[Rfam]
RNA sequence: GUGCAGUUUCUCUCAUGGUUUUCGACUGCUGACCGUAAAUUUUCCGGUCAGAGGUCGUUAGAGAACUGCUAUAUAAGCCUAGCUCGAGAUGCGUGUGCUGGUUUGCUUCCAAUGCGAACUGGUUCCUUUUCUCCUCGGGACAAUU
Numbered sequence: 001g002u003g004c005a006g007u008u009u010c011u012c013u014c015a016u017g018g019u020u021u022u023c024g025a026c027u028g029c030u031g032a033c034c035g036u037a038a039a040u041u042u043u044c045c046g047g048u049c050a051g052a053g054g055u056c057g058u059u060a061g062a063g064a065a066c067u068g069c070u071a072u073a074u075a076a077g078c079c080u081a082g083c084u085c086g087a088g089a090u091g092c093g094u095g096u097g098c099u100g101g102u103u104u105g106c107u108u109c110c111a112a113u114g115c116g117a118a119c120u121g122g123u124u125c126c127u128u129u130u131c132u133c134c135u136c137g138g139g140a141c142a143a144u145u
Stems, first nucleotide, its partner, number of pairs: 003069006024056004029051005083139006091131001097123010
Description:
The record is a 145-nucleotide RNA sequence from Caenorhabditis briggsae, which matches "Caenorhabditis snoRNA ceN104" in Rfam. Pairs were carried over by alignment from the consensus structure, which was predicted with RNAalifold. Gene Ontology terms of the family: nucleolus and RNA processing. On this family, see Jia et al., BMC Mol Biol 2007: "Systematic identification of non-coding RNA 2,2,7-trimethylguanosine cap structures in Caenorhabditis elegans". The family's RNA type in Rfam is H/ACA-box small nucleolar RNA.